[Rfam]
RNA sequence: UUGGGCGAGGAUGGCGGUGGUUCUAAUCAGUAGCGUGUUUGCCUUGCAAACACGUAGGUAAAAAAUGUACAGGGAUGUACAUUUUUUACCGUGC
Numbered sequence: 001u002u003g004g005g006c007g008a009g010g011a012u013g014g015c016g017g018u019g020g021u022u023c024u025a026a027u028c029a030g031u032a033g034c035g036u037g038u039u040u041g042c043c044u045u046g047c048a049a050a051c052a053c054g055u056a057g058g059u060a061a062a063a064a065a066u067g068u069a070c071a072g073g074g075a076u077g078u079a080c081a082u083u084u085u086u087u088a089c090c091g092u093g094c
Base pairs, nucleotide, nucleotide: 002017004015006013034054035053036052037051038050039049040048041047042046057090058089059088060087061086062085063084064083065082066081067080068079069078070077
Dot-bracket structure: .(.(.(......).).)................(((((((((...)))))))))..((((((((((((((......))))))))))))))....